[Rfam]
RNA sequence: ACAUUUUAAAUAAAAGAAUUAAAAAAAAUCUGUUCUUAUCAGUUUAAUAUCUGAUAUGUCCCCUAUCUGGGGACCAUAUAUUAAAUGGAUUUUUAGAACAGGGAGAUGGAAGAAGAGCUUGCUCUGUCCACUCUACGCAUCGACCUGGUAUUGCAGUACCUCCAGGACCGGUGCACCCCUC
Numbered sequence: 001a002c003a004u005u006u007u008a009a010a011u012a013a014a015a016g017a018a019u020u021a022a023a024a025a026a027a028a029u030c031u032g033u034u035c036u037u038a039u040c041a042g043u044u045u046a047a048u049a050u051c052u053g054a055u056a057u058g059u060c061c062c063c064u065a066u067c068u069g070g071g072g073a074c075c076a077u078a079u080a081u082u083a084a085a086u087g088g089a090u091u092u093u094u095a096g097a098a099c100a101g102g103g104a105g106a107u108g109g110a111a112g113a114a115g116a117g118c119u120u121g122c123u124c125u126g127u128c129c130a131c132u133c134u135a136c137g138c139a140u141c142g143a144c145c146u147g148g149u150a151u152u153g154c155a156g157u158a159c160c161u162c163c164a165g166g167a168c169c170g171g172u173g174c175a176c177c178c179c180u181c
Stems, first nucleotide, its partner, number of pairs: 005018003037056006058074006102134004108128002114125004137174006144166005
Record summary:
Shown here is a 181-nucleotide RNA sequence from Aquarana catesbeiana, a member of the family "U2 spliceosomal RNA". For this family Rfam cites "The uRNA database" (Zwieb, Nucleic Acids Res, 1997). Rfam's curators write: U2 is a small nuclear RNA (snRNA) component of the spliceosome (involved in pre-mRNA splicing). Complementary binding between U2 snRNA (in an area lying towards the 5' end but 3' to hairpin I) and the branchpoint sequence (BPS) of the intron results the bulging out of an unpaired adenosine, on the BPS, which initiates a nucleophilic attack at the intronic 5' splice site, thus starting the first of two transesterification reactions that mediate splicing. It is annotated as a spliceosomal small nuclear RNA. A search with the family's covariance model found it, with a score of 121 bits.